[Rfam]
RNA sequence: UCGGCCCCGGUUCACGCCCCGCAAGCCCGCGGCAGCGACCCGGCGCC
Number, nucleotide and partner (000 for none) at each position: 001u000002c000003g047004g046005c045006c000007c043008c042009g041010g040011u000012u000013c000014a000015c037016g036017c035018c000019c032020c031021g030022c029023a000024a000025g000026c000027c000028c000029g022030c021031g020032g019033c000034a000035g017036c016037g015038a000039c000040c010041c009042g008043g007044c000045g005046c004047c003
Annotation
L31-Actinobacteria ribosomal protein leader: a 47-nucleotide RNA from Streptomyces sp. LaPpAH-108. The base pairs follow the family's consensus structure, which is taken from published work. Rfam classes the family as a cis-regulatory leader. On this family, see Eckert and Weinberg, BMC Microbiol 2020: "Discovery of 20 novel ribosomal leader candidates in bacteria and archaea".